A member of the RNA family "DUF3800-X RNA", 74 nucleotides long. By type it is a small RNA.

RNA sequence: UCGUGGGUAAGUCCUUUCCGAAACGGAUGAGGCCACCGUGAGGUGGGUGGGACAAAGUAGGAGAGGGGCCACUU
Numbered sequence: 001u002c003g004u005g006g007g008u009a010a011g012u013c014c015u016u017u018c019c020g021a022a023a024c025g026g027a028u029g030a031g032g033c034c035a036c037c038g039u040g041a042g043g044u045g046g047g048u049g050g051g052a053c054a055a056a057g058u059a060g061g062a063g064a065g066g067g068g069c070c071a072c073u074u
Stems, first nucleotide, its partner, number of pairs: 003072004012067008033046005